[Rfam]
RNA sequence: CCGAUACAAUGAUGAGAACAUAGUUCAGCAGACUGACGGUGGUGAUCAGCAUUGUCUUUCGCUCCUAUCUGACGUAUCUG
Numbered sequence: 001c002c003g004a005u006a007c008a009a010u011g012a013u014g015a016g017a018a019c020a021u022a023g024u025u026c027a028g029c030a031g032a033c034u035g036a037c038g039g040u041g042g043u044g045a046u047c048a049g050c051a052u053u054g055u056c057u058u059u060c061g062c063u064c065c066u067a068u069c070u071g072a073c074g075u076a077u078c079u080g
Base pairs, nucleotide, nucleotide: 004077005076006075007074
Dot-bracket structure: ...((((..................................................................))))...